Record summary
The record is a 308-nucleotide RNA from Quercus lobata, which matches "Plant signal recognition particle RNA" in Rfam. The source organism's lineage runs through Eukaryota, Streptophyta, Gunneridae, rosids and Quercus. The base pairs follow the family's consensus structure, which is taken from published work. A reference for the family is Rosenblad et al. (2003), "SRPDB: Signal Recognition Particle Database", Nucleic Acids Res. The family's RNA type in Rfam is non-coding RNA gene. It scores 233 bits against the family's covariance model.

RNA sequence: GCCGAGCUCGGUAGUGUGAGCUUGUAACCUAAGCAGGGGCAUAAGGGUAAUGGAACAAUGGUCCAACUCGACUGGUCGGGUGCGAGGGGGCUUAAUGCUAGCUUGCCCGUUCCAAGCCAAGGGUUUGAAUCAUGCGACUUGAGCGAAGGCUCUGGGUUUCGUGGUUCUUAGAGAGGAGGGCAUUGCGUCAGGCUGGUUUCACAGAGCAGCGACAACCUCCCGCCCCUGGCAGUGGAAGGAUUACGGACUGGCGCCUCUCCGUACCCAUCAAGGCCCGAUGAGUUGAACCUGAAUGGACCAUUACCUUU
Number, nucleotide and partner (000 for none) at each position: 001g040002c039003c038004g023005a022006g021007c020008u019009c018010g017011g000012u000013a000014g000015u000016g000017u010018g009019a008020g007021c006022u005023u004024g000025u000026a000027a000028c037029c036030u035031a000032a000033g000034c000035a030036g029037g028038g003039g002040c001041a000042u000043a308044a307045g306046g305047g304048u303049a302050a301051u300052g299053g298054a000055a000056c295057a294058a000059u291060g290061g288062u287063c000064c285065a284066a283067c000068u281069c280070g279071a000072c277073u000074g275075g274076u273077c272078g266079g265080g264081u263082g262083c261084g260085a000086g257087g000088g256089g255090g254091c000092u253093u000094a000095a000096u000097g000098c251099u250100a249101g248102c000103u246104u245105g244106c000107c239108c238109g000110u237111u236112c235113c234114a233115a000116g230117c229118c228119a227120a000121g225122g224123g223124u222125u000126u000127g167128a166129a165130u164131c163132a162133u161134g160135c000136g158137a157138c156139u155140u154141g153142a151143g150144c149145g000146a000147a000148g000149g144150c143151u142152c000153u141154g140155g139156g138157u137158u136159u000160c134161g133162u132163g131164g130165u129166u128167c127168u173169u000170a000171g000172a000173g168174a000175g220176g219177a218178g217179g216180g000181c000182a000183u000184u000185g000186c211187g210188u209189c000190a000191g000192g000193c204194u203195g202196g000197u000198u000199u000200c000201a000202c195203a194204g193205a000206g000207c000208a000209g188210c187211g186212a000213c000214a000215a000216c179217c178218u177219c176220c175221c000222g124223c123224c122225c121226c000227u119228g118229g117230c116231a000232g000233u114234g113235g112236a111237a110238g108239g107240a000241u000242u000243a000244c105245g104246g103247a000248c101249u100250g099251g098252c000253g092254c090255c089256u088257c086258u000259c000260c084261g083262u082263a081264c080265c079266c078267a000268u000269c000270a000271a000272g077273g076274c075275c074276c000277g072278a000279u070280g069281a068282g000283u066284u065285g064286a000287a062288c061289c000290u060291g059292a000293a000294u057295g056296g000297a000298c053299c052300a051301u050302u049303a048304c047305c046306u045307u044308u043